Description:
Small nucleolar RNA SNORD115: a 79-nucleotide sequence from Mesocricetus auratus.
[Rfam]
RNA sequence: GGGUUGAUUUUGACAAACCAAAGUCACGAAGAGAGGUGAUGACAUAAAAAUCAUGCUCAAUAUGAUUACGCUGAGGCCC
Number, nucleotide and partner (000 for none) at each position: 001g079002g078003g077004u076005u073006g072007a000008u070009u000010u000011u000012g000013a000014c000015a000016a000017a000018c000019c000020a000021a000022a000023g000024u000025c000026a000027c000028g000029a000030a000031g000032a000033g000034a000035g000036g000037u000038g000039a000040u000041g000042a000043c000044a000045u000046a000047a000048a000049a000050a000051u000052c000053a000054u000055g000056c000057u000058c000059a000060a000061u000062a000063u000064g000065a000066u000067u000068a000069c000070g008071c000072u006073g005074a000075g000076g004077c003078c002079c001
Rfam links the family to the GO terms RNA processing and nucleolus. The family has 32 seed sequences and 3,387 matches in Rfam 15.1. For this family Rfam cites "Identification of brain-specific and imprinted small nucleolar RNA genes exhibiting an unusual genomic organization" (Cavaille et al., Proc Natl Acad Sci U S A, 2000). Lineage of the source: Eukaryota > Deuterostomia > Tetrapoda > Glires > Mesocricetus.